Rfam assigns this 126-nucleotide RNA sequence from Pseudoclavibacter chungangensis to the family "FMN riboswitch aptamer (RFN element)". The base pairs follow the family's consensus structure, which is taken from published work. NCBI's taxonomy places the organism under Bacteria, Bacillati, Actinomycetes, Micrococcales, Pseudoclavibacter. The match comes from Rfam's covariance-model search (102 bits).
RNA sequence: CAAGUGCUCCAGGGUCGGUGUAAGUCCGAACCGGCGGUAGAGUCCGCGAGCCUCGGCCCUCGGGCCCUGGUUGAUCCGGUGUGAUUCCGGAACCGACGGUGAAAGUCCGGAUGGGAGGAGUGCUCG
Numbered sequence: 001c002a003a004g005u006g007c008u009c010c011a012g013g014g015u016c017g018g019u020g021u022a023a024g025u026c027c028g029a030a031c032c033g034g035c036g037g038u039a040g041a042g043u044c045c046g047c048g049a050g051c052c053u054c055g056g057c058c059c060u061c062g063g064g065c066c067c068u069g070g071u072u073g074a075u076c077c078g079g080u081g082u083g084a085u086u087c088c089g090g091a092a093c094c095g096a097c098g099g100u101g102a103a104a105g106u107c108c109g110g111a112u113g114g115g116a117g118g119a120g121u122g123c124u125c126g
Stems, first nucleotide, its partner, number of pairs: 003124008016028003030106002032095002034047004042093002050071003075091005097109003